[Rfam]
RNA sequence: AAUGAGUUUGAUCCUGGCUCAGAAUGAACGCUGGCGGUAUGCCUAACACAUGCAAGUCGGACGCUGUGCUCUUUUGCUUUAUGCAAUUGCAUUCGGCGCAAAGAGGCACGGGGUGGCGAACGGGUGAGGAACGCGUGAGAAUCUACCAAGCAGACGGGGUCAAUCCCCCCUAGCCUUCUUGAAUCGAGAAGAAAAAAGCUUCAUUCGAAGCAUGCUUGAAUCUUGUUCCACUCCCUUUUGGGAGUGACUUUGUUCCAAGAGGAAGUUUACUUCGAACAGCGCUGCUUGAUGAGCUUGCGUCGGAUUAGGUAGUUGGUAAGGAAAUGGCUUACCAAGCCAACGAUCCGUAGCCGGCCUUUUCGGGUGAUCGGCCACACUGGGACUGAGAUACGGCCUAGACUCCCACGGGAGGCAGCAGUGAGGAAUCUUGGACAAUGGGCGAAAGCCUGAUCCAGCAAUACCGAGUGGGUGAGACGAAGGCUAAUUAGGUCGUAAAGCCCUUUCGUCGAGAAGAGACAAUGACAAGACUCGAAAAAGAAGCCCCGUCUAACUCCGUGCCAGCAGACGCGGUAAUACGGGGGGGGCUAGUGUUAUUCAGAA
Numbered sequence: 001a002a003u004g005a006g007u008u009u010g011a012u013c014c015u016g017g018c019u020c021a022g023a024a025u026g027a028a029c030g031c032u033g034g035c036g037g038u039a040u041g042c043c044u045a046a047c048a049c050a051u052g053c054a055a056g057u058c059g060g061a062c063g064c065u066g067u068g069c070u071c072u073u074u075u076g077c078u079u080u081a082u083g084c085a086a087u088u089g090c091a092u093u094c095g096g097c098g099c100a101a102a103g104a105g106g107c108a109c110g111g112g113g114u115g116g117c118g119a120a121c122g123g124g125u126g127a128g129g130a131a132c133g134c135g136u137g138a139g140a141a142u143c144u145a146c147c148a149a150g151c152a153g154a155c156g157g158g159g160u161c162a163a164u165c166c167c168c169c170c171u172a173g174c175c176u177u178c179u180u181g182a183a184u185c186g187a188g189a190a191g192a193a194a195a196a197a198g199c200u201u202c203a204u205u206c207g208a209a210g211c212a213u214g215c216u217u218g219a220a221u222c223u224u225g226u227u228c229c230a231c232u233c234c235c236u237u238u239u240g241g242g243a244g245u246g247a248c249u250u251u252g253u254u255c256c257a258a259g260a261g262g263a264a265g266u267u268u269a270c271u272u273c274g275a276a277c278a279g280c281g282c283u284g285c286u287u288g289a290u291g292a293g294c295u296u297g298c299g300u301c302g303g304a305u306u307a308g309g310u311a312g313u314u315g316g317u318a319a320g321g322a323a324a325u326g327g328c329u330u331a332c333c334a335a336g337c338c339a340a341c342g343a344u345c346c347g348u349a350g351c352c353g354g355c356c357u358u359u360u361c362g363g364g365u366g367a368u369c370g371g372c373c374a375c376a377c378u379g380g381g382a383c384u385g386a387g388a389u390a391c392g393g394c395c396u397a398g399a400c401u402c403c404c405a406c407g408g409g410a411g412g413c414a415g416c417a418g419u420g421a422g423g424a425a426u427c428u429u430g431g432a433c434a435a436u437g438g439g440c441g442a443a444a445g446c447c448u449g450a451u452c453c454a455g456c457a458a459u460a461c462c463g464a465g466u467g468g469g470u471g472a473g474a475c476g477a478a479g480g481c482u483a484a485u486u487a488g489g490u491c492g493u494a495a496a497g498c499c500c501u502u503u504c505g506u507c508g509a510g511a512a513g514a515g516a517c518a519a520u521g522a523c524a525a526g527a528c529u530c531g532a533a534a535a536a537g538a539a540g541c542c543c544c545g546u547c548u549a550a551c552u553c554c555g556u557g558c559c560a561g562c563a564g565a566c567g568c569g570g571u572a573a574u575a576c577g578g579g580g581g582g583g584g585c586u587a588g589u590g591u592u593a594u595u596c597a598g599a600a
Stems, first nucleotide, its partner, number of pairs: 004020005022596004027592006035463006041456001042422001047420003051417003056117003061114002064111007124375003133300007142292002147288007156168003175191007198280002301347003308338003313335008350372004354365004377398005400411004428454001430453003436449005467500003504537001506532005540585004544580001552579004561568002
Dot-bracket structure: ...(((((.......))))).((((.((((((..((((((((....(((.(((..(((..((.(((((((..................................))))))).)))))......(((......(((((((..((...(((((((..(((.......)))......(((((((...)))))))......((...............................................................................)).)))))))..)).)))))))(((....(((..((((((((.......)))))))))))......)))..((((((((....))))...))))))).(((((............))))).((((....))))...)))))).).....(.(((...(((((....))))).)))).).))))))...(((............................)))...(.(((((.................)))))....)..(((((.......((((.....((....)).......))))).)))).))))))))))....
RNA: Archaeal small subunit ribosomal RNA, nucleotides 1 to 600